Description
Shown here is a 109-nucleotide RNA sequence from Beta vulgaris, a member of the family "Small nucleolar RNA Z107/R87". The organism belongs to Beta vulgaris, within Eukaryota.
[Rfam]
RNA sequence: AAUUACAGUGACGACUCACAAUAUUCAAGCUCAACAGACCGGAUUGCAGGAUCUUCUCUUUGUCGAGAAGAACUCUUGCGUGUCGAGUAACCCGCUGAACUGAGUAAUU
Dot-bracket structure: ((((((.................................................................................................))))))
Numbered sequence: 001a002a003u004u005a006c007a008g009u010g011a012c013g014a015c016u017c018a019c020a021a022u023a024u025u026c027a028a029g030c031u032c033a034a035c036a037g038a039c040c041g042g043a044u045u046g047c048a049g050g051a052u053c054u055u056c057u058c059u060u061u062g063u064c065g066a067g068a069a070g071a072a073c074u075c076u077u078g079c080g081u082g083u084c085g086a087g088u089a090a091c092c093c094g095c096u097g098a099a100c101u102g103a104g105u106a107a108u109u
Stems, first nucleotide, its partner, number of pairs: 001109006

The literature on the family includes a 2001 paper in J Mol Biol by Barneche et al., "Identification of 66 box C/D snoRNAs in Arabidopsis thaliana: extensive gene duplications generated multiple isoforms predicting new ribosomal RNA 2'-O-methylation sites".